[Rfam]
RNA sequence: GUAGGCGUAGCGUAGCUGGAUAACGCAUCGGACUCCGACUCCGAAGACCGCCGGUUCGAAUCCGGCCGUCUACA
Numbered sequence: 001g002u003a004g005g006c007g008u009a010g011c012g013u014a015g016c017u018g019g020a021u022a023a024c025g026c027a028u029c030g031g032a033c034u035c036c037g038a039c040u041c042c043g044a045a046g047a048c049c050g051c052c053g054g055u056u057c058g059a060a061u062c063c064g065g066c067c068g069u070c071u072a073c074a
Base pairs, nucleotide, nucleotide: 001073002072003071004070005069006068007067010026011025012024013023028044029043030042031041032040050066051065052064053063054062
RNA: tRNA